The record is a 150-nucleotide sequence from Coregonus sp. 'balchen', which matches "Phenylalanine leader peptide" in Rfam. The base pairs follow the family's consensus structure, which was predicted with CMfinder. The family's RNA type in Rfam is cis-regulatory leader. The source organism's lineage runs through Eukaryota, Deuterostomia, Osteoglossocephalai, Salmonidae and Coregonus. The family has 71 seed sequences and 379 matches in Rfam 15.1.
RNA sequence: CCCCCCCCCGGGUUUUUCCCCCCCCCCCUUUUUUUUUUUUCCCCCCCCCCCCCCCCCCCGGGGGGGGUUUUUUGGGAAAGGGGGGGUUUUUCCCCCAAAAAAAAAAAGGGGGGGGGGGAAAAAAAACCCCCCCGGGGGGGGUUUUUUUUU
Number, nucleotide and partner (000 for none) at each position: 001c000002c000003c000004c000005c000006c000007c000008c000009c000010g000011g000012g000013u000014u000015u000016u120017u119018c118019c117020c000021c115022c114023c113024c112025c111026c110027c109028c108029u107030u106031u105032u104033u103034u102035u000036u100037u099038u098039u097040u000041c000042c083043c082044c081045c080046c000047c000048c000049c000050c000051c000052c000053c000054c000055c000056c000057c000058c000059c000060g000061g000062g000063g000064g000065g000066g000067g000068u000069u000070u000071u000072u000073u000074g000075g000076g000077a000078a000079a000080g045081g044082g043083g042084g094085g093086g092087u000088u000089u000090u000091u000092c086093c085094c084095c000096c000097a039098a038099a037100a036101a000102a034103a033104a032105a031106a030107a029108g028109g027110g026111g025112g024113g023114g022115g021116g000117g019118g018119a017120a016121a000122a000123a000124a144125a143126a142127c141128c140129c139130c138131c137132c136133c000134g000135g000136g132137g131138g130139g129140g128141g127142u126143u125144u124145u000146u000147u000148u000149u000150u000